[Rfam]
RNA sequence: AUCCUCAGCAGCUAGGGUUCCGGCUGGACAGGUUUGACACACCCGUCCGGUGUUACUGGUCCGAGAGCAGCGACCCGUUCGGUAAACAGCGAACGGGCACACGGCGGGACAAAAGCCCGGGAGGU
Numbered sequence: 001a002u003c004c005u006c007a008g009c010a011g012c013u014a015g016g017g018u019u020c021c022g023g024c025u026g027g028a029c030a031g032g033u034u035u036g037a038c039a040c041a042c043c044c045g046u047c048c049g050g051u052g053u054u055a056c057u058g059g060u061c062c063g064a065g066a067g068c069a070g071c072g073a074c075c076c077g078u079u080c081g082g083u084a085a086a087c088a089g090c091g092a093a094c095g096g097g098c099a100c101a102c103g104g105c106g107g108g109a110c111a112a113a114a115g116c117c118c119g120g121g122a123g124g125u
Base pairs, nucleotide, nucleotide: 008071009070011068012067015062016061020059021058022056023051024050025049026048027047028046074097075096076095077094078093079092080091100120102123106118107117108116

A member of the RNA family "Guanidine-I riboswitch aptamer" from Skermanella aerolata, 125 nucleotides long. Pairs were carried over by alignment from the consensus structure. About the family: This family represents a conserved RNA structure found upstream of the ykkC and yxkD genes in Bacillus subtilis and related genes in other bacteria. The function of this family is unclear although it has been suggested that it may function to switch on efflux pumps and detoxification systems in response to harmful environmental molecules. The match comes from Rfam's covariance-model search (72 bits). Gene Ontology term of the family: regulation of gene expression.